[Rfam]
Nucleotides: 120
Stems, first nucleotide, its partner, number of pairs: 001046004007038002010035009065090004070085001072080001074078001098116006104109001
Number, partner (000 for none) and nucleotide at each position: 001046g002045c003044a004043g005000g006000u007038g008037a009000a010035u011034g012033c013032a014031a015030c016029g017028u018027c019000a020000a021000g022000c023000g024000a025000u026000g027018g028017g029016c030015g031014u032013u033012g034011c035010g036000c037008u038007c039000c040000a041000u042000a043004u044003u045002g046001u047000c048000u049000u050000a051000c052000u053000u054000c055000u056000u057000u058000a059000u060000a061000u062000u063000g064000u065090g066089a067088a068087u069000g070085g071000c072080u073000a074078u075000g076000c077000a078074g079000c080072a081000u082000a083000g084000u085070u086000g087068a088067u089066u090065c091000a092000g093000a094000u095000a096000a097000c098116g099115c100114c101113g102112g103111g104109u105000g106000u107000a108000u109104a110000c111103c112102c113101c114100g115099g116098c117000u118000u119000u120000u
Rfam assigns this 120-nucleotide RNA sequence from Biostraticola tofi to the family "Fumarate/nitrate reductase regulator sRNA". A search with the family's covariance model found it, with a score of 89 bits. A reference for the family is Durand and Storz (2010), "Reprogramming of anaerobic metabolism by the FnrS small RNA", Mol Microbiol. Pairs were carried over by alignment from the consensus structure, which is taken from published work. It is annotated as a small RNA. Taxonomically the source falls in Biostraticola (Bacteria, Pseudomonadati, Pseudomonadota, Gammaproteobacteria).